[Rfam]
RNA sequence: UGCGCAGUAGGAUGAGAUAUUUUAUACAGUUAUCCCUGUCUGAACACACAUGUUGAGAACUUUGUACUCUGAUUGCGCA
Numbered sequence: 001u002g003c004g005c006a007g008u009a010g011g012a013u014g015a016g017a018u019a020u021u022u023u024a025u026a027c028a029g030u031u032a033u034c035c036c037u038g039u040c041u042g043a044a045c046a047c048a049c050a051u052g053u054u055g056a057g058a059a060c061u062u063u064g065u066a067c068u069c070u071g072a073u074u075g076c077g078c079a
Stems, first nucleotide, its partner, number of pairs: 001079007
Dot-bracket structure: (((((((.................................................................)))))))
Shown here is a 79-nucleotide RNA sequence from Massariosphaeria phaeospora, a member of the family "Small nucleolar RNA R38". A search with the family's covariance model found it, with a score of 62 bits. Rfam's curators write: snoR38 is a C/D box small nucleolar RNA conserved across yeast, human, Arabidopsis and rice. It is encoded in the intron of elongation factor-1 gamma in both pombe and cerevisiae. snoR38 guides the methylation of 2'-O-ribose sites in 28S rRNA. NCBI's taxonomy places the organism under Eukaryota, Fungi, leotiomyceta, Pleosporales, Massariosphaeria. A reference for the family is Bachellerie et al. (1995), "Antisense snoRNAs: a family of nucleolar RNAs with long complementarities to rRNA", Trends Biochem Sci. The base pairs follow the family's consensus structure, which was predicted with PFOLD. Gene Ontology terms of the family: RNA processing and nucleolus. The family's RNA type in Rfam is C/D-box small nucleolar RNA.